[Rfam]
RNA: Alphaproteobacterial sRNA BjrC1505
Organism: Candidatus Filomicrobium marinum
RNA sequence: UCAAUUUCGAACUCAGCGUUAGGCAGUUGUUAGGUAUGGGGUGCCUAUAGUUUGGCGCAUCCAGUGCUUCUGGAUUGAGUGGUACUGUCCACUCUGUUUGACGCCUCCCUGUUGACUUUUUGAGCCGCCCUUCGAGCGGCUCAUUUUUU
Numbered sequence: 001u002c003a004a005u006u007u008c009g010a011a012c013u014c015a016g017c018g019u020u021a022g023g024c025a026g027u028u029g030u031u032a033g034g035u036a037u038g039g040g041g042u043g044c045c046u047a048u049a050g051u052u053u054g055g056c057g058c059a060u061c062c063a064g065u066g067c068u069u070c071u072g073g074a075u076u077g078a079g080u081g082g083u084a085c086u087g088u089c090c091a092c093u094c095u096g097u098u099u100g101a102c103g104c105c106u107c108c109c110u111g112u113u114g115a116c117u118u119u120u121u122g123a124g125c126c127g128c129c130c131u132u133c134g135a136g137c138g139g140c141u142c143a144u145u146u147u148u149u
Stems, first nucleotide, its partner, number of pairs: 001055004016048001020047006059075004077094006100113004121143008130134001